[Rfam]
The family of this 96-nucleotide sequence from Legionella fallonii is "RAGATH-13 RNA". The literature on the family includes a 2015 paper in Nat Chem Biol by Weinberg et al., "New classes of self-cleaving ribozymes revealed by comparative genomics analysis". Its family is annotated with catalytic activity in the Gene Ontology. NCBI's taxonomy places the organism under Bacteria, Pseudomonadati, Legionellales, Legionella, Legionella fallonii. A search with the family's covariance model found it, with a score of 85 bits.
RNA sequence: AUUGAUUUGCCCCCUCUUUGAGCAUUUCGGCUUUUGCCGGGUAUCAAUUUUUUGGAUUGAGCCGCUCGACCAACACUAAACACAAACAGGGCAAAU
Numbered sequence: 001a002u003u004g005a006u007u008u009g010c011c012c013c014c015u016c017u018u019u020g021a022g023c024a025u026u027u028c029g030g031c032u033u034u035u036g037c038c039g040g041g042u043a044u045c046a047a048u049u050u051u052u053u054g055g056a057u058u059g060a061g062c063c064g065c066u067c068g069a070c071c072a073a074c075a076c077u078a079a080a081c082a083c084a085a086a087c088a089g090g091g092c093a094a095a096u
Stems, first nucleotide, its partner, number of pairs: 005096008018069006028039004040063003044060004